[Rfam]
RNA sequence: CGGCACACCCCUAACACUCGGAUCGUCCGGCACGUUCCUGCCGGUGGAGGGAUUCAUUU
Numbered sequence: 001c002g003g004c005a006c007a008c009c010c011c012u013a014a015c016a017c018u019c020g021g022a023u024c025g026u027c028c029g030g031c032a033c034g035u036u037c038c039u040g041c042c043g044g045u046g047g048a049g050g051g052a053u054u055c056a057u058u059u
Stems, first nucleotide, its partner, number of pairs: 010050003015046002027044006